[Rfam]
Source information
c-di-GMP-I riboswitch aptamer: a 76-nucleotide RNA sequence from Cellulomonas sp. WB94. A search with the family's covariance model found it, with a score of 62 bits.

RNA sequence: UCAGCGAAAGAGCAAACCCUCCGCAAGGAGGCGACGCAAAGCCACGGGACCCUCGACGGUCAGCCGGGCUGCCGAA
Numbered sequence: 001u002c003a004g005c006g007a008a009a010g011a012g013c014a015a016a017c018c019c020u021c022c023g024c025a026a027g028g029a030g031g032c033g034a035c036g037c038a039a040a041g042c043c044a045c046g047g048g049a050c051c052c053u054c055g056a057c058g059g060u061c062a063g064c065c066g067g068g069c070u071g072c073c074g075a076a
Base pairs, nucleotide, nucleotide: 012037013036018031019030020029021028022027040070041069042068043067045066046065047064048061049060050059051058